[Rfam]
RNA: U1 spliceosomal RNA
RNA sequence: UUACAUACCUGGACGGGGUCAAUGGGUGAUCAAGAAGGCCCAUGGCCUAGGUGGGUGGCUUUCAUUGCACUUGGGAGGUGCACCCGCCUAACAUCUCCCUUUUGUGGAGAGUGUACGUCAUAAUUUGUGGUAGCGGGGGCUGUGUUCGCGCGGCCCCUGU
Numbered sequence: 001u002u003a004c005a006u007a008c009c010u011g012g013a014c015g016g017g018g019u020c021a022a023u024g025g026g027u028g029a030u031c032a033a034g035a036a037g038g039c040c041c042a043u044g045g046c047c048u049a050g051g052u053g054g055g056u057g058g059c060u061u062u063c064a065u066u067g068c069a070c071u072u073g074g075g076a077g078g079u080g081c082a083c084c085c086g087c088c089u090a091a092c093a094u095c096u097c098c099c100u101u102u103u104g105u106g107g108a109g110a111g112u113g114u115a116c117g118u119c120a121u122a123a124u125u126u127g128u129g130g131u132a133g134c135g136g137g138g139g140c141u142g143u144g145u146u147c148g149c150g151c152g153g154c155c156c157c158u159g160u
Stems, first nucleotide, its partner, number of pairs: 012119004016048006023042005049089004054085001056082002059078005091114003094110003098107002134159006141152004